RNA sequence: CAUCCAUCGAGACCGGCGGAGGGACAGGCCCUUUGAUGCCGGGGCAACCUGAUGGGAUCCGCGCACCGUGCGGACCCCCGUCGCGGUGCCAAGUCCUGCGGGGACCUGCGCGUCCACCGGAAGAUGGUCA
Numbered sequence: 001c002a003u004c005c006a007u008c009g010a011g012a013c014c015g016g017c018g019g020a021g022g023g024a025c026a027g028g029c030c031c032u033u034u035g036a037u038g039c040c041g042g043g044g045c046a047a048c049c050u051g052a053u054g055g056g057a058u059c060c061g062c063g064c065a066c067c068g069u070g071c072g073g074a075c076c077c078c079c080g081u082c083g084c085g086g087u088g089c090c091a092a093g094u095c096c097u098g099c100g101g102g103g104a105c106c107u108g109c110g111c112g113u114c115c116a117c118c119g120g121a122a123g124a125u126g127g128u129c130a
Stems, first nucleotide, its partner, number of pairs: 004127005013042005021031003025098004043090004048086002051082006094122001099119003103115001